[Rfam]
Small nucleolar RNA Z161/Z228: an 88-nucleotide RNA sequence from Microthlaspi erraticum. A search with the family's covariance model found it, with a score of 57 bits. Its family is annotated with nucleolus and RNA processing in the Gene Ontology. A reference for the family is Chen et al. (2003), "The high diversity of snoRNAs in plants: identification and comparative study of 120 snoRNA genes from Oryza sativa", Nucleic Acids Res. Its Rfam clan is "SNORD35 clan".
RNA sequence: GAUUCAUAUGAUGAGAUUGGAUCUAAAAUUCUCACGACGGUCGUCUGAUUCAUAUGAUGAGAUUGGACCUAAAUACUCUCUGAUACAU
Numbered sequence: 001g002a003u004u005c006a007u008a009u010g011a012u013g014a015g016a017u018u019g020g021a022u023c024u025a026a027a028a029u030u031c032u033c034a035c036g037a038c039g040g041u042c043g044u045c046u047g048a049u050u051c052a053u054a055u056g057a058u059g060a061g062a063u064u065g066g067a068c069c070u071a072a073a074u075a076c077u078c079u080c081u082g083a084u085a086c087a088u
Base pairs, nucleotide, nucleotide: 002088003087004085051059052058053057